[Rfam]
Nucleotides: 088
Stems, first nucleotide, its partner, number of pairs: 012075002015072004023064005029059005
Number, partner (000 for none) and nucleotide at each position: 001000g002000u003000g004000c005000a006000u007000c008000a009000a010000u011000a012075c013074c014000u015072u016071g017070g018069c019000u020000c021000u022000a023064g024063a025062c026061u027060g028000c029059u030058u031057a032056c033055u034000g035000c036000u037000a038000a039000u040000a041000g042000g043000a044000u045000u046000u047000g048000a049000a050000a051000g052000u053000a054000c055033a056032g057031u058030a059029a060027c061026a062025g063024u064023c065000u066000a067000c068000a069018g070017u071016c072015a073000u074013g075012g076000c077000u078000a079000c080000u081000g082000a083000u084000g085000c086000c087000u088000g